Background:
A member of the RNA family "Vault RNA" from Sparus aurata, 106 nucleotides long. The family's consensus secondary structure is taken from published work. For this family Rfam cites "Evolution of Vault RNAs" (Stadler et al., Mol Biol Evol, 2009). By type it is a non-coding RNA gene. About the family: This family of RNAs are found as part of the enigmatic vault ribonucleoprotein complex.
RNA sequence: GCCCUGGUUUUGCUCCGCGGUGACUUCCCUCCUCAAAUCUACUUGGGAGCUUCCGCCGUCUCUAUCCCUCCCUGGGAUCCAACCGCGGGCGCUCUCCAGUGUCUUC
Numbered sequence: 001g002c003c004c005u006g007g008u009u010u011u012g013c014u015c016c017g018c019g020g021u022g023a024c025u026u027c028c029c030u031c032c033u034c035a036a037a038u039c040u041a042c043u044u045g046g047g048a049g050c051u052u053c054c055g056c057c058g059u060c061u062c063u064a065u066c067c068c069u070c071c072c073u074g075g076g077a078u079c080c081a082a083c084c085g086c087g088g089g090c091g092c093u094c095u096c097c098a099g100u101g102u103c104u105u106c
Base pairs, nucleotide, nucleotide: 002101004099005098006097007096012090013089014088015087017086018085019084020083026077027076028075029074